[Rfam]
RNA: Bacterial RNase P class A
RNA sequence: UAACAUAAUUAUGCAGUCACUUAUAAUAAGUUUUUAUAAGAGGAAAGUCCGGACUCUUUGAGCAAAAGUGCCAGUUAAUUGCUGGGCAAAAAUUUUUGACGGAAAGUGCACAAGAAAAAAUACAAUCUAUUGGUUUUUAUAGAUAAAGGUGAAAAGGUUUGGUAAAAGCAUACCACGUAUUUGGAAACAAAUUCGUUAUGUAAACCCCACUUUGAGUAAAACUAAAUAAGAAUUUAAAGAGCUCUUUUUUUUUAUAAACAAUUCUGGUAGGUUGCAUAAAUAUAUGUAGAAAUAUAUAUAUUAGAUAAAUGACUGUAAUUAAAACAGGAUCCGGCUUAUUAUAUGUUAAUAA
Numbered sequence: 001u002a003a004c005a006u007a008a009u010u011a012u013g014c015a016g017u018c019a020c021u022u023a024u025a026a027u028a029a030g031u032u033u034u035u036a037u038a039a040g041a042g043g044a045a046a047g048u049c050c051g052g053a054c055u056c057u058u059u060g061a062g063c064a065a066a067a068g069u070g071c072c073a074g075u076u077a078a079u080u081g082c083u084g085g086g087c088a089a090a091a092a093u094u095u096u097u098g099a100c101g102g103a104a105a106g107u108g109c110a111c112a113a114g115a116a117a118a119a120a121u122a123c124a125a126u127c128u129a130u131u132g133g134u135u136u137u138u139a140u141a142g143a144u145a146a147a148g149g150u151g152a153a154a155a156g157g158u159u160u161g162g163u164a165a166a167a168g169c170a171u172a173c174c175a176c177g178u179a180u181u182u183g184g185a186a187a188c189a190a191a192u193u194c195g196u197u198a199u200g201u202a203a204a205c206c207c208c209a210c211u212u213u214g215a216g217u218a219a220a221a222c223u224a225a226a227u228a229a230g231a232a233u234u235u236a237a238a239g240a241g242c243u244c245u246u247u248u249u250u251u252u253u254a255u256a257a258a259c260a261a262u263u264c265u266g267g268u269a270g271g272u273u274g275c276a277u278a279a280a281u282a283u284a285u286g287u288a289g290a291a292a293u294a295u296a297u298a299u300a301u302u303a304g305a306u307a308a309a310u311g312a313c314u315g316u317a318a319u320u321a322a323a324a325c326a327g328g329a330u331c332c333g334g335c336u337u338a339u340u341a342u343a344u345g346u347u348a349a350u351a352a
Stems, first nucleotide, its partner, number of pairs: 001348007010341001011339001012317007020040007028032001045337003049334005054216003062252001064250001066212005071085005086100001087098004101207002106205002108201003123148001125144006132137001156174003160170002175196003179192005220273004230264005245256001247254001281300008